[Rfam]
RNA sequence: UUUAAGUGCAACCAUAAGUUUCCACGCCCAACUUUAAUUAUCUGUCUUAUUUGAAAAAUUUUUAUAAUUAGUAUUUUUAUUGUUAUGGGAUGAUAAAGUAUGAAUAGUACUUUACUCGUGACUUAUAUUUUUAUUUUUUUAAAAAAAAUUAAAUAAGAUGGACGAUCAAAGUUAGACACGUAAAGCCAUAGCUGCACUUAAG
Dot-bracket structure: ...........................(.((((((.(((.((((((((((......................................................................................................)))))))))).))).)))))).)...........................
The record is a 202-nucleotide sequence from Oryza sativa, which matches "MIR812 microRNA precursor family" in Rfam. The source organism's lineage runs through Eukaryota, Streptophyta, Streptophytina, commelinids and Oryza sativa. The family has 22 seed sequences and 57,451 matches in Rfam 15.1.